[Rfam]
RNA sequence: UGAGUCAGCCAGGUGGCCGCGAGUGUCGCAACCGACACUCGAGGAACGUCCGGACUCCGCAGGGCAGGGUGAUUGCUAACGGCAACCCGGGGCGACCCGCGGGAAAGUGCCACAGAAAACAGACCGCCCGCAAGGGUAAGGGUGAAACGGUGGUGUAAGAGACCACCAGCGCCCCCGGCGACGGGGACGGCUCGGUAAACCCCACCCGGAGCAAGGUCAAGAGGAGCCCUGACGGGCUCUGCGCGAACGUCCGAGGGCGGCCCGCCCGAGUUCGCGGGUAGACCGCUGGAGCACGUCGGCAACGGCGCGCCUAGAUGGAUGGCCACCGGCCGGGACAAUGCCGCAAGGCGUCCCGGUCACAGAAUCCGGCGUACCGGCUGACUCAUCCG
Dot-bracket structure: ((((((((((.(((((((.(((((((((....)))))))))....[[[.[[[[[((((...[[[[.(((((.((((.....)))).(((((....)))).)((...(((((............((((((....))))..)).......((((((.......)))))).(((.(((((....))))).)).)..)))..)))))))))))))...((((........................((((((......((((.]]]]))))..)))))).....))))......((.(((((....))))).))..........))))))).....................................]]]]]]]]...))))))))))....
This 389-nucleotide RNA sequence from Stackebrandtia nassauensis belongs to the Rfam family "Bacterial RNase P class A". The base pairs follow the family's consensus structure, which is taken from published work.